[Rfam]
RNA sequence: UUGAACAUAAAUUGAUUUAUGUUUGGAUACCUUAACAUAAAAGUGAUUCUUAUCAAUUGAUGAUGUUUGGAUAA
Numbered sequence: 001u002u003g004a005a006c007a008u009a010a011a012u013u014g015a016u017u018u019a020u021g022u023u024u025g026g027a028u029a030c031c032u033u034a035a036c037a038u039a040a041a042a043g044u045g046a047u048u049c050u051u052a053u054c055a056a057u058u059g060a061u062g063a064u065g066u067u068u069g070g071a072u073a074a
Stems, first nucleotide, its partner, number of pairs: 011061007021053002025049004030045001032043002
The family of this 74-nucleotide sequence from Medicago truncatula is "MIR5272 microRNA precursor family".
The source organism's lineage runs through Eukaryota, Magnoliopsida, Gunneridae, Fabaceae and Medicago.